[Rfam]
RNA sequence: AGAUCUACACUCUGAACUUCUACUAACAAAUGAAAAGUUCAGUAGGAGUCAGGGUUAGAUCUCG
Numbered sequence: 001a002g003a004u005c006u007a008c009a010c011u012c013u014g015a016a017c018u019u020c021u022a023c024u025a026a027c028a029a030a031u032g033a034a035a036a037g038u039u040c041a042g043u044a045g046g047a048g049u050c051a052g053g054g055u056u057a058g059a060u061c062u063c064g
Base pairs, nucleotide, nucleotide: 001062002061003060004059005058006057007056009055010054011053012052013051014050015049017048018047019046020045021044022043023042024041025039026038027037

Shown here is a 64-nucleotide sequence from Caenorhabditis brenneri, a member of the family "mir-7615 microRNA precursor family". Lineage of the source: Eukaryota > Opisthokonta > Metazoa > Bilateria > Caenorhabditis. The base pairs follow the family's consensus structure, which was predicted with RNAalifold.